About this RNA:
Archaeal large subunit ribosomal RNA: a 555-nucleotide part of an RNA from Methanosalsum zhilinae. The organism belongs to Methanosalsum zhilinae, within Archaea. The sequence is in the family's curated seed alignment. Its family is annotated with ribosome and structural constituent of ribosome in the Gene Ontology.
RNA sequence: CAAAUAUGCCAUCAGGUGAAUGGCUCGGCUCAAGUGCUGAAGAAGGACGUGCCAAGCUGCGAUAUGCCCCGGGAAGGUGCAAGGAACCAACGAACCGGGGAUUUCCUAAUGAGACCUCUUAGUAUCCGCAAGGAUACUGAUCAGUAAUGAUCGGGAACGUCCCGAAUUGAAACAUCUUAGUAGGGACAGGAAAAGAAAUCAAUCGAGAUGCCGGAAGUAACGGCGAGUGAAAUCGGUACAGUUCAAACCGAAUCCCCGCAGGAAUGCAGGGGAAAUGUGGUGUGGAAGGGCCGGUCCAUUUUCUGCUAAAUUCAGGGUAGUCGAAUUGUCUGGAACGUCAGACCAUAGAGUGUGAUAGUCACGUAGACGCAAUGAAACGCAGAAGGAUCGGUACCUGAGUACCGUGGGUUGGAUAUCCCGCGGGAAUCUGGGAGACAUCAACUUCCAAAACUAAAUACAACUUGAGACCGAUAGUGAAAUAGUAGGGUGACCGAAAGCUGAAAAGUACCCCAGAAAGGGAGGUGCAAAGUGCCUGAAACCUGAUGGUGAUGGAAC
Numbered sequence: 001c002a003a004a005u006a007u008g009c010c011a012u013c014a015g016g017u018g019a020a021u022g023g024c025u026c027g028g029c030u031c032a033a034g035u036g037c038u039g040a041a042g043a044a045g046g047a048c049g050u051g052c053c054a055a056g057c058u059g060c061g062a063u064a065u066g067c068c069c070c071g072g073g074a075a076g077g078u079g080c081a082a083g084g085a086a087c088c089a090a091c092g093a094a095c096c097g098g099g100g101a102u103u104u105c106c107u108a109a110u111g112a113g114a115c116c117u118c119u120u121a122g123u124a125u126c127c128g129c130a131a132g133g134a135u136a137c138u139g140a141u142c143a144g145u146a147a148u149g150a151u152c153g154g155g156a157a158c159g160u161c162c163c164g165a166a167u168u169g170a171a172a173c174a175u176c177u178u179a180g181u182a183g184g185g186a187c188a189g190g191a192a193a194a195g196a197a198a199u200c201a202a203u204c205g206a207g208a209u210g211c212c213g214g215a216a217g218u219a220a221c222g223g224c225g226a227g228u229g230a231a232a233u234c235g236g237u238a239c240a241g242u243u244c245a246a247a248c249c250g251a252a253u254c255c256c257c258g259c260a261g262g263a264a265u266g267c268a269g270g271g272g273a274a275a276u277g278u279g280g281u282g283u284g285g286a287a288g289g290g291c292c293g294g295u296c297c298a299u300u301u302u303c304u305g306c307u308a309a310a311u312u313c314a315g316g317g318u319a320g321u322c323g324a325a326u327u328g329u330c331u332g333g334a335a336c337g338u339c340a341g342a343c344c345a346u347a348g349a350g351u352g353u354g355a356u357a358g359u360c361a362c363g364u365a366g367a368c369g370c371a372a373u374g375a376a377a378c379g380c381a382g383a384a385g386g387a388u389c390g391g392u393a394c395c396u397g398a399g400u401a402c403c404g405u406g407g408g409u410u411g412g413a414u415a416u417c418c419c420g421c422g423g424g425a426a427u428c429u430g431g432g433a434g435a436c437a438u439c440a441a442c443u444u445c446c447a448a449a450a451c452u453a454a455a456u457a458c459a460a461c462u463u464g465a466g467a468c469c470g471a472u473a474g475u476g477a478a479a480u481a482g483u484a485g486g487g488u489g490a491c492c493g494a495a496a497g498c499u500g501a502a503a504a505g506u507a508c509c510c511c512a513g514a515a516a517g518g519g520a521g522g523u524g525c526a527a528a529g530u531g532c533c534u535g536a537a538a539c540c541u542g543a544u545g546g547u548g549a550u551g552g553a554a555c
Stems, first nucleotide, its partner, number of pairs: 007548010022533001023498002027469002029466006035459002044107004048061003067100006076088003111120003140151004158189001159187005169176002199206002210237005220228002240452004248280003258267003292390004302383004320368003326341003330337001344348001350362003402423007430446005485492002